[Rfam]
RNA sequence: UCUUUCUGUGCUGAGGCUCUGGAAUGUGCACUGGGCACAGUACCCAAGUGAAAAUGUAGAACCAUUCUCUGUUGCCUUCCUUCUGAGAACAGA
Numbered sequence: 001u002c003u004u005u006c007u008g009u010g011c012u013g014a015g016g017c018u019c020u021g022g023a024a025u026g027u028g029c030a031c032u033g034g035g036c037a038c039a040g041u042a043c044c045c046a047a048g049u050g051a052a053a054a055u056g057u058a059g060a061a062c063c064a065u066u067c068u069c070u071g072u073u074g075c076c077u078u079c080c081u082u083c084u085g086a087g088a089a090c091a092g093a
Stems, first nucleotide, its partner, number of pairs: 001093003004089001

Rfam assigns this 93-nucleotide RNA sequence from Nannospalax galili to the family "Small nucleolar RNA U83B". Rfam links the family to the GO terms nucleolus and RNA processing. The family's RNA type in Rfam is C/D-box small nucleolar RNA. From the family's description: U83B belongs to the C/D family of snoRNAs. U83B like U83A has no documented RNA target and they share the same host gene with the C/D box snoRNA U43 (RPL3). N.B. U83A/B/C have no sequence similarity with the U83 snoRNA that was cloned by Jady and Kiss (2000). The literature on the family includes a 2000 paper in Nucleic Acids Res by Jady and Kiss, "Characterisation of the U83 and U84 small nucleolar RNAs: two novel 2'-O-ribose methylation guide RNAs that lack complementarities to ribosomal RNAs". NCBI's taxonomy places the organism under Eukaryota, Euteleostomi, Tetrapoda, Mammalia, Nannospalax.